Source information:
A member of the RNA family "Small nucleolar RNA SNORA84" from Hemibagrus wyckioides, 137 nucleotides long. Pairs were carried over by alignment from the consensus structure, which was predicted with WAR. It is annotated as an H/ACA-box small nucleolar RNA. Gene Ontology terms of the family: nucleolus and RNA processing. The literature on the family includes a 2002 paper in Curr Biol by Marker et al., "Experimental RNomics: identification of 140 candidates for small non-messenger RNAs in the plant Arabidopsis thaliana". A search with the family's covariance model found it, with a score of 64 bits. The family has 28 seed sequences and 757 matches in Rfam 15.1.
[Rfam]
RNA sequence: GCCUGGUGGUUCCUUGAGGCCGCUCAUCCGUGCUGUUCAUCGAGGUUGUAUUUCACAGGCAAAUAAUAACUUCUUCAGUUUAAUGCUUGGGAGUUGCUUACCUCUGUGACUUCCAAAGCCCGACUGGAGAAACAUUC
Numbered sequence: 001g002c003c004u005g006g007u008g009g010u011u012c013c014u015u016g017a018g019g020c021c022g023c024u025c026a027u028c029c030g031u032g033c034u035g036u037u038c039a040u041c042g043a044g045g046u047u048g049u050a051u052u053u054c055a056c057a058g059g060c061a062a063a064u065a066a067u068a069a070c071u072u073c074u075u076c077a078g079u080u081u082a083a084u085g086c087u088u089g090g091g092a093g094u095u096g097c098u099u100a101c102c103u104c105u106g107u108g109a110c111u112u113c114c115a116a117a118g119c120c121c122g123a124c125u126g127g128a129g130a131a132a133c134a135u136u137c
Stems, first nucleotide, its partner, number of pairs: 001060004007050002012045006019036002022033002073129001075127006085119002087116004092111006